A member of the RNA family "TPP riboswitch aptamer (THI element)" from Candidatus Magnetomonas plexicatena, 123 nucleotides long. The match comes from Rfam's covariance-model search (71 bits). Rfam links the family to the GO term thiamine pyrophosphate binding.
RNA sequence: CAGUACCCUUGGGGGAGGCUUAAAACACAGAAUUGGUUUUGAGCCUGAGAAACCUUAUUAAAAGGUGACCCCUUGAACCUGAUACGGAUUAUGCCGGCGGAGGGAAAAGGGCUUUUUUCGUUA
Numbered sequence: 001c002a003g004u005a006c007c008c009u010u011g012g013g014g015g016a017g018g019c020u021u022a023a024a025a026c027a028c029a030g031a032a033u034u035g036g037u038u039u040u041g042a043g044c045c046u047g048a049g050a051a052a053c054c055u056u057a058u059u060a061a062a063a064g065g066u067g068a069c070c071c072c073u074u075g076a077a078c079c080u081g082a083u084a085c086g087g088a089u090u091a092u093g094c095c096g097g098c099g100g101a102g103g104g105a106a107a108a109g110g111g112c113u114u115u116u117u118u119c120g121u122u123a
Stems, first nucleotide, its partner, number of pairs: 006111005011072004017045010052066005078103003085096003
Dot-bracket structure: .....(((((((((..((((((((((.........))))))))))......(((((.....)))))..)))).....(((....(((......)))....)))...)))))............